[Rfam]
RNA sequence: AAAGGGCUACAAUAAGCAAGUCGUAUAAGUUCGGAAAUAGGGUCCGGACGUUUCUACCAAGCAACCGUAAAUUGCUAGGCUACGAGCUGCAUAUAGGAGUGU
Numbered sequence: 001a002a003a004g005g006g007c008u009a010c011a012a013u014a015a016g017c018a019a020g021u022c023g024u025a026u027a028a029g030u031u032c033g034g035a036a037a038u039a040g041g042g043u044c045c046g047g048a049c050g051u052u053u054c055u056a057c058c059a060a061g062c063a064a065c066c067g068u069a070a071a072u073u074g075c076u077a078g079g080c081u082a083c084g085a086g087c088u089g090c091a092u093a094u095a096g097g098a099g100u101g102u
Stems, first nucleotide, its partner, number of pairs: 018088001021085005029049007058078001060076005
Dot-bracket structure: .................(..(((((...(((((((.......)))))))........(.(((((.......))))).)..)))))..)..............